[Rfam]
RNA sequence: CGAGUAUGAAAGACAAUCGCUAGUGCUUGCAUUAGAGGAAAGUCCGAGCUCCGCAGGGCAAGAUGCCGGAUAACGUCCGGCGAAGGUGACUUUAGGGAUAGUGCCACAGAAAUGUGUACCGCCGCGCAAGCGGUAAGGGUGGAACGGUGCGGUAAGAGCGCACCAGCAGUAAGGUAACUUACUGGCUAGGUAAACCCCAUCUGGAGCAAGACCGAAUAGGGGAGGGAUGAAGCGGCCCGCUGAUCUUCCGGGUUGUGUCGCUUGAACAUGCCAGCAAUGGUAUGUCUAGAUAGAUGAUUGUCGCUGCCAUCGGCAGAACAAAACUCGGCUUACUGAUUACUCGUCUC
Numbered sequence: 001c002g003a004g005u006a007u008g009a010a011a012g013a014c015a016a017u018c019g020c021u022a023g024u025g026c027u028u029g030c031a032u033u034a035g036a037g038g039a040a041a042g043u044c045c046g047a048g049c050u051c052c053g054c055a056g057g058g059c060a061a062g063a064u065g066c067c068g069g070a071u072a073a074c075g076u077c078c079g080g081c082g083a084a085g086g087u088g089a090c091u092u093u094a095g096g097g098a099u100a101g102u103g104c105c106a107c108a109g110a111a112a113u114g115u116g117u118a119c120c121g122c123c124g125c126g127c128a129a130g131c132g133g134u135a136a137g138g139g140u141g142g143a144a145c146g147g148u149g150c151g152g153u154a155a156g157a158g159c160g161c162a163c164c165a166g167c168a169g170u171a172a173g174g175u176a177a178c179u180u181a182c183u184g185g186c187u188a189g190g191u192a193a194a195c196c197c198c199a200u201c202u203g204g205a206g207c208a209a210g211a212c213c214g215a216a217u218a219g220g221g222g223a224g225g226g227a228u229g230a231a232g233c234g235g236c237c238c239g240c241u242g243a244u245c246u247u248c249c250g251g252g253u254u255g256u257g258u259c260g261c262u263u264g265a266a267c268a269u270g271c272c273a274g275c276a277a278u279g280g281u282a283u284g285u286c287u288a289g290a291u292a293g294a295u296g297a298u299u300g301u302c303g304c305u306g307c308c309a310u311c312g313g314c315a316g317a318a319c320a321a322a323a324c325u326c327g328g329c330u331u332a333c334u335g336a337u338u339a340c341u342c343g344u345c346u347c
Base pairs, nucleotide, nucleotide: 001343002342003341004340005339006338010334012302013301014300015299016298017297018296020035021034022033023032024031025030040331041330042329044328045327046326047325048324049206050205051204052203056238057237058236059235061202062201063200064199065198066080067079068078069077070076081095082093083092084091085090096197097196101195102194103191104190105189119138120137121134122133123132124131125130146164147163148162149161150160151159166186167184168183169182170181171180172179173178210259211258212257213255220249221248222247223246224245225244231241232240233239266285267284268283269282270281271280272279273278
Rfam assigns this 347-nucleotide sequence from Megasphaera sp. An286 to the family "Bacterial RNase P class A". Lineage of the source: Bacteria > Bacillota > Negativicutes > Veillonellales > Megasphaera. The family's consensus secondary structure is taken from published work. By type it is a ribozyme. Gene Ontology terms of the family: ribonuclease P activity, dimeric ribonuclease P complex and tRNA processing.